[Rfam]
RNA sequence: CAUCAUCUAGUAGGAAUUGAACCCACGAAUUCUCCAAUUAUGAGUUGGGCAUUUUAACCAUUCGGCCAUGGAUGU
Number, nucleotide and partner (000 for none) at each position: 001c000002a000003u000004c074005a073006u072007c071008u070009a000010g026011u025012a000013g023014g022015a000016a000017u000018u000019g000020a000021a000022c014023c013024c000025a011026c010027g000028a000029a000030u000031u000032c000033u000034c000035c000036a000037a000038u000039u000040a069041u068042g067043a000044g066045u065046u064047g063048g062049g061050c000051a000052u000053u000054u000055u000056a000057a000058c000059c000060a000061u049062u048063c047064g046065g045066c044067c042068a041069u040070g008071g007072a006073u005074g004075u000

This 75-nucleotide RNA sequence from Gossypium mustelinum belongs to the Rfam family "Plastid-ycf2 5UTR RNA". Rfam's curators write: Plastid ycf2 is a non-coding RNA (ncRNA) recognised in plastids. It was found in the prime untranslated region (5UTR) of ycf2 genes, it presents a tRNA-like motif which suggests it can be involved in mRNA maturation, particularly involved in defining the precise 5' end of the transcript. A reference for the family is Richter et al. (2023), "Retrograde signaling in plants: A critical review focusing on the GUN pathway and beyond", Plant Commun. The base pairs follow the family's consensus structure, which was predicted with LocARNA. By type it is a cis-regulatory element.